[Rfam]
The record is a 95-nucleotide sequence from Malus domestica, which matches "MIR535 microRNA precursor family" in Rfam. The family's consensus secondary structure was predicted with RNAalifold. Rfam's curators put it in the seed alignment. Gene Ontology terms of the family: miRNA-mediated post-transcriptional gene silencing and RISC complex. Taxonomically the source falls in Malus (Eukaryota, Viridiplantae, Tracheophyta, Mesangiospermae). Rfam 15.1 lists 544 matches to the family in 108 species.
RNA sequence: GAUGUUGUGUGACGACGAGAGAGAGCACGCUUGUCAUCACCCAUGAAAGGAUCAUGGUUGUUUACGGGCGUGCUCUUUCUUGUUGUCAUAAAGUC
Number, nucleotide and partner (000 for none) at each position: 001g000002a000003u000004g000005u000006u000007g000008u000009g000010u088011g087012a086013c085014g084015a000016c082017g081018a000019g000020a078021g077022a000023g075024a000025g073026c072027a071028c070029g069030c068031u067032u066033g065034u064035c000036a000037u000038c000039a000040c000041c000042c000043a000044u000045g000046a000047a000048a000049g000050g000051a000052u000053c000054a000055u000056g000057g000058u000059u000060g000061u000062u000063u000064a034065c033066g032067g031068g030069c029070g028071u027072g026073c025074u000075c023076u000077u021078u020079c000080u000081u017082g016083u000084u014085g013086u012087c011088a010089u000090a000091a000092a000093g000094u000095c000